[Rfam]
RNA sequence: AUUGCAGCGCUCUCUAAUUCGCUUGGUGCAGGUCGGGACCGUGUAUAUAUAUGAAAAAUAUAUACGUACAGAUUGUAUGUAUGUAUAUGAUGAUGGUGUGUAGAUGUAUGUGGUCCCGCCUUGCAUCAAUUGAAUCGGAGAUUGCUGUGAGU
Number, nucleotide and partner (000 for none) at each position: 001a000002u000003u000004g000005c000006a000007g000008c000009g000010c000011u000012c000013u139014c138015u000016a000017a135018u134019u133020c132021g000022c000023u129024u128025g127026g126027u125028g124029c123030a122031g121032g120033u000034c118035g117036g116037g115038a114039c000040c112041g111042u110043g109044u108045a107046u106047a105048u104049a000050u000051a000052u000053g000054a000055a000056a000057a000058a000059u000060a000061u000062a000063u000064a000065c000066g000067u000068a000069c000070a000071g000072a000073u000074u000075g000076u000077a000078u000079g000080u000081a000082u000083g000084u000085a000086u000087a000088u000089g000090a000091u000092g000093a000094u000095g000096g000097u000098g000099u000100g000101u000102a000103g000104a048105u047106g046107u045108a044109u043110g042111u041112g040113g000114u038115c037116c036117c035118g034119c000120c032121u031122u030123g029124c028125a027126u026127c025128a024129a023130u000131u000132g020133a019134a018135u017136c000137g000138g014139a013140g000141a000142u000143u000144g000145c000146u000147g000148u000149g000150a000151g000152u000
Background:
Shown here is a 152-nucleotide RNA from Apium graveolens, a member of the family "MIR168 microRNA precursor family". The organism belongs to Apium, within Eukaryota. The family has 10 seed sequences and 518 matches in Rfam 15.1.